[Rfam]
RNA sequence: UAUCUCUGGUUCCUGUGCAUUUGAGCGAGAAAAUCUUUAGCCUUUUACUAAAUACUUCCGUGCAGUGGGCGCUUUUGAGCAAGCAUUUUUUAGAAGCCCUUCCCGUAAGGAGAGGGCU
Numbered sequence: 001u002a003u004c005u006c007u008g009g010u011u012c013c014u015g016u017g018c019a020u021u022u023g024a025g026c027g028a029g030a031a032a033a034u035c036u037u038u039a040g041c042c043u044u045u046u047a048c049u050a051a052a053u054a055c056u057u058c059c060g061u062g063c064a065g066u067g068g069g070c071g072c073u074u075u076u077g078a079g080c081a082a083g084c085a086u087u088u089u090u091u092a093g094a095a096g097c098c099c100u101u102c103c104c105g106u107a108a109g110g111a112g113a114g115g116g117c118u
Base pairs, nucleotide, nucleotide: 004079005078006077009070010069012068013067016064017063018062019061031057032056034054036052037051038050094118096117097116098115099114100113101112

U5 spliceosomal RNA: a 118-nucleotide sequence from Ditylenchus dipsaci. The family's consensus secondary structure is taken from published work.